[Rfam]
RNA: DUF3800-I RNA
RNA sequence: UAGAAUUACAGGUAUAAGUACACUGUUUAAACAUCUGAACUGUGAUUAAAGCAAUUAAGUGUAUGUUAAGUACUCCACACUCAGAUGGGAAAGCACCGAAUGGUGCUUUUUUUGUAAAAUU
Numbered sequence: 001u002a003g004a005a006u007u008a009c010a011g012g013u014a015u016a017a018g019u020a021c022a023c024u025g026u027u028u029a030a031a032c033a034u035c036u037g038a039a040c041u042g043u044g045a046u047u048a049a050a051g052c053a054a055u056u057a058a059g060u061g062u063a064u065g066u067u068a069a070g071u072a073c074u075c076c077a078c079a080c081u082c083a084g085a086u087g088g089g090a091a092a093g094c095a096c097c098g099a100a101u102g103g104u105g106c107u108u109u110u111u112u113u114g115u116a117a118a119a120u121u
Stems, first nucleotide, its partner, number of pairs: 007029001008026004012021003032087006041079004045055003059075001061073004088111010